This 168-nucleotide RNA from Enterococcus faecalis belongs to the Rfam family "M-box riboswitch aptamer (ykoK leader)".
Rfam 15.1 lists 1,095 matches to the family in 932 species.
The pairing is the family consensus, mapped onto this sequence.
From the family's description: M-box riboswitch, also know as ykoK leader is described as a metaloregulatory RNA that sense divalent metals and function as a genetic control element of genes related to divalent metal transport in bacteria. It was first reported upstream of the B.subtilis ykoK gene and genes with related functions in other bacteria.
The literature on the family includes a 2004 paper in Proc Natl Acad Sci U S A by Barrick et al., "New RNA motifs suggest an expanded scope for riboswitches in bacterial genetic control".
It is one of the family's seed sequences.
NCBI's taxonomy places the organism under Bacteria, Bacilli, Enterococcaceae, Enterococcus, Enterococcus faecalis.

RNA sequence: AUAGAAUCAUAUUAGGUGAGGUUACUCUGAAGAACACAGGUUAUCGCUCGGAAAUGUCGAGAGACAGUAACGAGUAAAGCAGGGAUUGUCGAAUUAAGGCUUUCCUAAGAUAACUAGAAUUUUUUUCUUACGUCUCAGAAAGCCAAAGCUCAAUUAUUGUGAUUACCC
Number, nucleotide and partner (000 for none) at each position: 001a000002u000003a000004g000005a164006a163007u162008c161009a160010u159011a154012u153013u097014a000015g150016g149017u148018g000019a000020g144021g143022u142023u000024a000025c000026u139027c138028u137029g136030a000031a135032g134033a133034a000035c000036a000037c000038a000039g000040g114041u113042u112043a111044u110045c000046g075047c074048u073049c072050g071051g000052a000053a000054a000055u066056g065057u064058c063059g000060a000061g000062a000063g058064a057065c056066a055067g000068u000069a000070a000071c050072g049073a048074g047075u046076a000077a000078a000079g000080c000081a000082g105083g104084g103085a102086u000087u000088g100089u099090c098091g000092a000093a000094u000095u000096a000097a013098g090099g089100c088101u000102u085103u084104c083105c082106u000107a000108a000109g000110a044111u043112a042113a041114c040115u000116a128117g127118a126119a000120u000121u000122u000123u000124u000125u000126u118127c117128u116129u000130a000131c000132g000133u033134c032135u031136c029137a028138g027139a026140a000141a000142g022143c021144c020145a000146a000147a000148g017149c016150u015151c000152a000153a012154u011155u000156a000157u000158u000159g010160u009161g008162a007163u006164u005165a000166c000167c000168c000